RNA: ZMP/ZTP riboswitch aptamer (pfl RNA motif)
Organism: Microbacterium stercoris
RNA sequence: UCAGGAUGUCGCGACUGGCGUUGAGGUGGAUUACCACCGGGAAGCGACCCAAGACGGCAUUCGACCGCGCGCCUGGGCCGAUGCG
Numbered sequence: 001u002c003a004g005g006a007u008g009u010c011g012c013g014a015c016u017g018g019c020g021u022u023g024a025g026g027u028g029g030a031u032u033a034c035c036a037c038c039g040g041g042a043a044g045c046g047a048c049c050c051a052a053g054a055c056g057g058c059a060u061u062c063g064a065c066c067g068c069g070c071g072c073c074u075g076g077g078c079c080g081a082u083g084c085g
Stems, first nucleotide, its partner, number of pairs: 004050001008048005015041002017073005026037004062080002065077002